[Rfam]
RNA sequence: GGAAUUCCUGGCAGGGGAGACACCAUGAUCAGGCAGAUGGUUUUCCUAGGGUGAGGCUCAUCCCCUGCACUCCGAGUGUGCUGACCCCUGAGAUUUCCCCCAAUGCGGGAAACUCAACUGCAUAAUUUGUUAUUCUGUGAUUCCUGUAGGAACAAU
Numbered sequence: 001g002g003a004a005u006u007c008c009u010g011g012c013a014g015g016g017g018a019g020a021c022a023c024c025a026u027g028a029u030c031a032g033g034c035a036g037a038u039g040g041u042u043u044u045c046c047u048a049g050g051g052u053g054a055g056g057c058u059c060a061u062c063c064c065c066u067g068c069a070c071u072c073c074g075a076g077u078g079u080g081c082u083g084a085c086c087c088c089u090g091a092g093a094u095u096u097c098c099c100c101c102a103a104u105g106c107g108g109g110a111a112a113c114u115c116a117a118c119u120g121c122a123u124a125a126u127u128u129g130u131u132a133u134u135c136u137g138u139g140a141u142u143c144c145u146g147u148a149g150g151a152a153c154a155a156u
Stems, first nucleotide, its partner, number of pairs: 011121004015047006022041005048089004053085001055082003059078003063074001092115002094112003098108002140156001141152004
Dot-bracket structure: ..........((((((((((.(((((..........)))))))))))((((.(.(((.(((.(..........).))).)))..)))))..(((((.((.......)).))).))..))))..................(((((....))))...)
About this RNA:
The family of this 156-nucleotide sequence from Anas platyrhynchos is "U1 spliceosomal RNA". Its Rfam clan is "U1 clan". A reference for the family is Charenton et al. (2019), "Mechanism of 5' splice site transfer for human spliceosome activation", Science. The family's RNA type in Rfam is spliceosomal small nuclear RNA. Rfam's curators write: U1 is a small nuclear RNA (snRNA) component of the spliceosome (involved in pre-mRNA splicing). Its 5' end forms complementary base pairs with the 5' splice junction, thus defining the 5' donor site of an intron. It scores 92 bits against the family's covariance model. The source organism's lineage runs through Eukaryota, Sarcopterygii, Neognathae, Anatidae and Anas platyrhynchos.